[Rfam]
RNA sequence: ACUCACACUGAGUGGCCGGAUUAUGAUGAUCUCUGAACACAUAAUAAUCUGGCCACUCAGUGUAUAU
Numbered sequence: 001a002c003u004c005a006c007a008c009u010g011a012g013u014g015g016c017c018g019g020a021u022u023a024u025g026a027u028g029a030u031c032u033c034u035g036a037a038c039a040c041a042u043a044a045u046a047a048u049c050u051g052g053c054c055a056c057u058c059a060g061u062g063u064a065u066a067u
Stems, first nucleotide, its partner, number of pairs: 005063013019049006026042003